[Rfam]
RNA: Glycine riboswitch aptamer
Organism: Saccharopolyspora rectivirgula
RNA sequence: CGACCAAGGAGAAAAGCAGGAGCGGCUCGCUCCUCGCCCACGGUGCAAGCCGCCCCGCCGGCGGUGAAACUCUCAGGCCAAUGACUCCGGGGAGCUG
Numbered sequence: 001c002g003a004c005c006a007a008g009g010a011g012a013a014a015a016g017c018a019g020g021a022g023c024g025g026c027u028c029g030c031u032c033c034u035c036g037c038c039c040a041c042g043g044u045g046c047a048a049g050c051c052g053c054c055c056c057g058c059c060g061g062c063g064g065u066g067a068a069a070c071u072c073u074c075a076g077g078c079c080a081a082u083g084a085c086u087c088c089g090g091g092g093a094g095c096u097g
Base pairs, nucleotide, nucleotide: 004092005091008088009087010086011085018034019033020032021031036078037077038076040073043072045070049065050064051063052062053061